[Rfam]
RNA sequence: UCGGUCUUGUGCACAACGGUAAGCCAGUGGUCAUGUCAGCACAAUGAAGGAUAUGACCAUGUUG
Numbered sequence: 001u002c003g004g005u006c007u008u009g010u011g012c013a014c015a016a017c018g019g020u021a022a023g024c025c026a027g028u029g030g031u032c033a034u035g036u037c038a039g040c041a042c043a044a045u046g047a048a049g050g051a052u053a054u055g056a057c058c059a060u061g062u063u064g
Stems, first nucleotide, its partner, number of pairs: 007044006028059002031056007
This 64-nucleotide RNA from Alphacoronavirus nyctali belongs to the Rfam family "Coronavirus 3' UTR pseudoknot". The family is grouped with related families in Rfam's "Coronavirus 3' UTR". Rfam links the family to the GO term viral genome replication. The family's RNA type in Rfam is cis-regulatory element. Rfam describes the family as follows. Coronaviruses are plus-strand RNA viruses with ~30kb genomes. The 3' UTR region of coronavirus genomes contains a conserved ~55nt pseudoknot structure which has been shown to be necessary for viral genome replication. The mechanism of cis-regulation is unclear, but this element is postulated to function in the plus-strand. The seed alignment was expanded in 2020 by Eric Nawrocki.